The record is a 184-nucleotide RNA from Heterotrigona itama, which matches "U2 spliceosomal RNA" in Rfam. Taxonomically the source falls in Heterotrigona (Eukaryota, Arthropoda, Hymenoptera, Apinae). U2 is a small nuclear RNA (snRNA) component of the spliceosome (involved in pre-mRNA splicing). Complementary binding between U2 snRNA (in an area lying towards the 5' end but 3' to hairpin I) and the branchpoint sequence (BPS) of the intron results the bulging out of an unpaired adenosine, on the BPS, which initiates a nucleophilic attack at the intronic 5' splice site, thus starting the first of two transesterification reactions that mediate splicing. A reference for the family is Zwieb (1997), "The uRNA database", Nucleic Acids Res. The match comes from Rfam's covariance-model search (102 bits).
RNA sequence: AUUGAUUGUCGAAAUAAAGGUCAAAUUUAUCUGUUCUUAUCAGCUUAAUAUCUGAUACACUCCCCAUCGGGGAGUCAGAAUAUUAACCUUAUUUUUGAGAAUAGGCGGAGUUGGUGGAACUCGUUCCUCUUCUGUCACGAGUUAACCCAGCCUUGCAGUACUGCUGGGAAUUGGCCCAAGUAAA
Numbered sequence: 001a002u003u004g005a006u007u008g009u010c011g012a013a014a015u016a017a018a019g020g021u022c023a024a025a026u027u028u029a030u031c032u033g034u035u036c037u038u039a040u041c042a043g044c045u046u047a048a049u050a051u052c053u054g055a056u057a058c059a060c061u062c063c064c065c066a067u068c069g070g071g072g073a074g075u076c077a078g079a080a081u082a083u084u085a086a087c088c089u090u091a092u093u094u095u096u097g098a099g100a101a102u103a104g105g106c107g108g109a110g111u112u113g114g115u116g117g118a119a120c121u122c123g124u125u126c127c128u129c130u131u132c133u134g135u136c137a138c139g140a141g142u143u144a145a146c147c148c149a150g151c152c153u154u155g156c157a158g159u160a161c162u163g164c165u166g167g168g169a170a171u172u173g174g175c176c177c178a179a180g181u182a183a184a
Stems, first nucleotide, its partner, number of pairs: 001015003038057006059075007104136007116127004139177001141175004146168006